[Rfam]
Nucleotides: 103
Base pairs, nucleotide, nucleotide: 001026002025003024004022005021006020007019008018010017011016066099067098068097069095070094071093073091075090076089077088
Number, partner (000 for none) and nucleotide at each position: 001026u002025g003024g004022g005021c006020g007019g008018u009000a010017u011016c012000a013000u014000a015000a016011g017010a018008a019007c020006c021005g022004c023000a024003c025002c026001a027000a028000a029000a030000a031000u032000g033000c034000a035000u036000g037000c038000a039000a040000u041000a042000a043000a044000g045000u046000a047000a048000g049000a050000u051000a052000u053000g054000a055000u056000a057000a058000g059000g060000a061000u062000g063000u064000a065000u066099c067098u068097g069095c070094c071093u072000a073091g074000a075090u076089c077088c078000a079000a080000a081000c082000a083000a084000a085000u086000a087000a088077g089076g090075a091073c092000a093071a094070g095069g096000a097068c098067a099066g100000a101000g102000g103000g